[Rfam]
RNA sequence: CCGGACAGGAUGUCCGGUGGUUCCAUUCUCGCGAUGUUUUGCCGUAAGGCAAAACUCGAAGCUGAAAAAUGUACACGGAUGUCCGAUCAUAAGC
Numbered sequence: 001c002c003g004g005a006c007a008g009g010a011u012g013u014c015c016g017g018u019g020g021u022u023c024c025a026u027u028c029u030c031g032c033g034a035u036g037u038u039u040u041g042c043c044g045u046a047a048g049g050c051a052a053a054a055c056u057c058g059a060a061g062c063u064g065a066a067a068a069a070u071g072u073a074c075a076c077g078g079a080u081g082u083c084c085g086a087u088c089a090u091a092a093g094c
Base pairs, nucleotide, nucleotide: 001017002016003015004014005013006012032058033057034056036055037054038053039052040051041050042049043048061094062093063092065090068087070085071084073082074081

TD-2 RNA: a 94-nucleotide RNA from Treponema denticola. Its Rfam clan is "TD (Treponema denticola) motifs". The source organism's lineage runs through Bacteria, Pseudomonadati, Spirochaetia, Treponematales and Treponema denticola. Rfam 15.1 lists 310 matches to the family in 11 species. On this family, see Weinberg et al., Nucleic Acids Res 2007: "Identification of 22 candidate structured RNAs in bacteria using the CMfinder comparative genomics pipeline".